Shown here is a 99-nucleotide RNA sequence, a member of the family "PhotoRC-II RNA". By type it is a cis-regulatory element. The family's consensus secondary structure is taken from published work.
[Rfam]
Nucleotides: 099
Base pairs, nucleotide, nucleotide: 015041016040017039018038019037021035028057029056030055031054032053064085065084066083067082068081069080070079
Number, partner (000 for none) and nucleotide at each position: 001000g002000c003000c004000c005000u006000c007000u008000g009000a010000g011000a012000c013000a014000a015041c016040u017039g018038c019037u020000c021035u022000u023000a024000a025000a026000c027000c028057g029056a030055g031054a032053c033000c034000u035021a036000c037019a038018g039017c040016a041015g042000u043000c044000u045000a046000a047000a048000a049000c050000u051000u052000c053032g054031u055030c056029u057028c058000u059000c060000a061000u062000a063000u064085c065084c066083a067082c068081u069080a070079g071000u072000g073000a074000a075000g076000g077000g078000a079070u080069u081068a082067g083066u084065g085064g086000a087000a088000a089000u090000a091000u092000a093000g094000u095000a096000u097000c098000g099000c